[Rfam]
RNA sequence: CAUAGAAAACAGGGGUGCUGUAAAAGGCUGAGAUGGAUAUUUCCGAACCCUUUUUACCUGAUACGGGCAAUACCGACGUAGGGAGCUUGAAGCAUAUAUUU
Numbered sequence: 001c002a003u004a005g006a007a008a009a010c011a012g013g014g015g016u017g018c019u020g021u022a023a024a025a026g027g028c029u030g031a032g033a034u035g036g037a038u039a040u041u042u043c044c045g046a047a048c049c050c051u052u053u054u055u056a057c058c059u060g061a062u063a064c065g066g067g068c069a070a071u072a073c074c075g076a077c078g079u080a081g082g083g084a085g086c087u088u089g090a091a092g093c094a095u096a097u098a099u100u101u
Stems, first nucleotide, its partner, number of pairs: 007088002010085001011051004016045001017028003035044003057082004064075003

Record summary: The record is a 101-nucleotide sequence from Ruminococcus sp. CAG:382, which matches "TPP riboswitch aptamer (THI element)" in Rfam. The source organism's lineage runs through Bacteria, Bacillati, Eubacteriales, Oscillospiraceae and Ruminococcus. The base pairs follow the family's consensus structure, which is taken from published work.